[Rfam]
RNA sequence: CUCACAGAGUUUAUUGGCAUUCUGUCCACCUCCCAUCUCUUGAAAAUCUCUCUUUUCUAUAUGUGGAGGUGGGCAUACUGCCAACCAAGCUCUGUUGG
Numbered sequence: 001c002u003c004a005c006a007g008a009g010u011u012u013a014u015u016g017g018c019a020u021u022c023u024g025u026c027c028a029c030c031u032c033c034c035a036u037c038u039c040u041u042g043a044a045a046a047u048c049u050c051u052c053u054u055u056u057c058u059a060u061a062u063g064u065g066g067a068g069g070u071g072g073g074c075a076u077a078c079u080g081c082c083a084a085c086c087a088a089g090c091u092c093u094g095u096u097g098g
Base pairs, nucleotide, nucleotide: 011088014084015083016082017081018080019079023075024074025073026072027071028070029069030068031067032066033065

Rfam assigns this 98-nucleotide RNA sequence from Vitis rotundifolia to the family "MIR394 microRNA precursor family". The organism belongs to Vitis, within Eukaryota. It scores 92 bits against the family's covariance model. Rfam links the family to the GO terms miRNA-mediated post-transcriptional gene silencing and RISC complex. The literature on the family includes a 2006 paper in Genome Res by Lu et al., "MicroRNAs and other small RNAs enriched in the Arabidopsis RNA-dependent RNA polymerase-2 mutant".